[Rfam]
RNA sequence: CCCGCGGUUAGACGGAAAGACCCCGUGCACCUUUACUACAGCUUCAGACUGGCAUCAGGCCAAGCAUGUGCAGGAUAGGUGGUAGGCUUCGAAGCUCCGACGCCAGUUGGAGUGGAGCCAUCCUUGAGAUACCACCCUUGCUUCGCUUGAUGUCUAACCGCGGUCCGUUAUCCGGAUCCGGGACCCUCUGUGGCGGGUAGUUUGACUGGGGCGGUCGCCUCCCAAAGAGUAACGGAGGCGCGCGAAGGUUGGCUCAGAGCGGUCGGAAAUCGCUCGUUGAGUGCAAUGGCAGAAGCCAGCCUGACUGCGAGACUGACAAGUCGAGCAGAGUCGAAAGACGGCCAUAGUGAUCCGGUGGUCCCGCGUGGAAGGGCCAUCGCUCAACGGAUAAAAGGUACGCCGGGGAUAACAGGCUGAUACUGCCCAAGAGUCCAUAUCGACGGCAGUGUUUGGCACCUCGAUGUCGGCUCAUCUCAUCCUGGGGCUGGAGCAGGUCCCAAGGGUACGGCUGUUCGCCGUUUAAAGAGGUACGUGAGCUGGGUUUAGAACGUCGUGAGACAGUUCGGUCCCUAUCUGCCGUGGGUGUA
Numbered sequence: 001c002c003c004g005c006g007g008u009u010a011g012a013c014g015g016a017a018a019g020a021c022c023c024c025g026u027g028c029a030c031c032u033u034u035a036c037u038a039c040a041g042c043u044u045c046a047g048a049c050u051g052g053c054a055u056c057a058g059g060c061c062a063a064g065c066a067u068g069u070g071c072a073g074g075a076u077a078g079g080u081g082g083u084a085g086g087c088u089u090c091g092a093a094g095c096u097c098c099g100a101c102g103c104c105a106g107u108u109g110g111a112g113u114g115g116a117g118c119c120a121u122c123c124u125u126g127a128g129a130u131a132c133c134a135c136c137c138u139u140g141c142u143u144c145g146c147u148u149g150a151u152g153u154c155u156a157a158c159c160g161c162g163g164u165c166c167g168u169u170a171u172c173c174g175g176a177u178c179c180g181g182g183a184c185c186c187u188c189u190g191u192g193g194c195g196g197g198u199a200g201u202u203u204g205a206c207u208g209g210g211g212c213g214g215u216c217g218c219c220u221c222c223c224a225a226a227g228a229g230u231a232a233c234g235g236a237g238g239c240g241c242g243c244g245a246a247g248g249u250u251g252g253c254u255c256a257g258a259g260c261g262g263u264c265g266g267a268a269a270u271c272g273c274u275c276g277u278u279g280a281g282u283g284c285a286a287u288g289g290c291a292g293a294a295g296c297c298a299g300c301c302u303g304a305c306u307g308c309g310a311g312a313c314u315g316a317c318a319a320g321u322c323g324a325g326c327a328g329a330g331u332c333g334a335a336a337g338a339c340g341g342c343c344a345u346a347g348u349g350a351u352c353c354g355g356u357g358g359u360c361c362c363g364c365g366u367g368g369a370a371g372g373g374c375c376a377u378c379g380c381u382c383a384a385c386g387g388a389u390a391a392a393a394g395g396u397a398c399g400c401c402g403g404g405g406a407u408a409a410c411a412g413g414c415u416g417a418u419a420c421u422g423c424c425c426a427a428g429a430g431u432c433c434a435u436a437u438c439g440a441c442g443g444c445a446g447u448g449u450u451u452g453g454c455a456c457c458u459c460g461a462u463g464u465c466g467g468c469u470c471a472u473c474u475c476a477u478c479c480u481g482g483g484g485c486u487g488g489a490g491c492a493g494g495u496c497c498c499a500a501g502g503g504u505a506c507g508g509c510u511g512u513u514c515g516c517c518g519u520u521u522a523a524a525g526a527g528g529u530a531c532g533u534g535a536g537c538u539g540g541g542u543u544u545a546g547a548a549c550g551u552c553g554u555g556a557g558a559c560a561g562u563u564c565g566g567u568c569c570c571u572a573u574c575u576g577c578c579g580u581g582g583g584u585g586u587a
Base pairs, nucleotide, nucleotide: 001583002582003581004580005579006578007577008576010575011574012573014570015569022404023403024402025401027400028399029396030395031394032393033392035201036200037199038198042193043192045190046189047188048187051154052153053152054151055150056149057148058147059146060145062143063142064141065140066139068137078136079135080134081133082132085119086118087117094113095112096111097110098109099108100107101106158181159180160179162178163177164176165175166174167173204216205215206214207213217239218238219237220236221235222234240385242342243341248300249299250298251297252296253295254280255279257275258274259273260272261271262270281290282289305328306327307326308325311322312321313320330339331338332337353379354378355377356376357375358374359373361372362371413454414453415452417451418448419447420446421445422444423443424442428438429437465540466538467537468536469535470532471529472528473527474526475525478503479502481498482497483496484495485494486493505519506518507517508516509515546564547563548562549561550559551558552557
A member of the RNA family "Bacterial large subunit ribosomal RNA" from Rhodovulum sp. 12E13, 587 nucleotides of a longer RNA.
The match comes from Rfam's covariance-model search (2634 bits).